[Rfam]
The family of this 107-nucleotide RNA sequence from Lacticaseibacillus saniviri is "23S methyl RNA motif". NCBI's taxonomy places the organism under Bacteria, Bacillati, Lactobacillaceae, Lacticaseibacillus, Lacticaseibacillus saniviri. A search with the family's covariance model found it, with a score of 72 bits. The family's RNA type in Rfam is cis-regulatory element.

RNA sequence: UUAUUUCUAACUUUUAUCAGAUUUGCUUGCGGUGAUAAAAGUUAGCGAUAGGAAUCUUAACUAACGUAUUGCUUCGCCGUGAUAUCACCGAAGCAAUGCGUUUUUUU
Numbered sequence: 001u002u003a004u005u006u007c008u009a010a011c012u013u014u015u016a017u018c019a020g021a022u023u024u025g026c027u028u029g030c031g032g033u034g035a036u037a038a039a040a041g042u043u044a045g046c047g048a049u050a051g052g053a054a055u056c057u058u059a060a061c062u063a064a065c066g067u068a069u070u071g072c073u074u075c076g077c078c079g080u081g082a083u084a085u086c087a088c089c090g091a092a093g094c095a096a097u098g099c100g101u102u103u104u105u106u107u
Stems, first nucleotide, its partner, number of pairs: 002050004007045013063102014079088003